This 73-nucleotide RNA sequence from Diabrotica balteata belongs to the Rfam family "mir-16 microRNA precursor family". The family has 14 seed sequences and 4,705 matches in Rfam 15.1. A search with the family's covariance model found it, with a score of 39 bits.

RNA sequence: UUUUGACUUACCAAGCAUGUAAAUAUUAGCUAGCAUGUUAAUACCUAAUAUUUACAUGCUUGGUAAGUCAAAA
Numbered sequence: 001u002u003u004u005g006a007c008u009u010a011c012c013a014a015g016c017a018u019g020u021a022a023a024u025a026u027u028a029g030c031u032a033g034c035a036u037g038u039u040a041a042u043a044c045c046u047a048a049u050a051u052u053u054a055c056a057u058g059c060u061u062g063g064u065a066a067g068u069c070a071a072a073a
Stems, first nucleotide, its partner, number of pairs: 001073003005069003011063008020054001022052008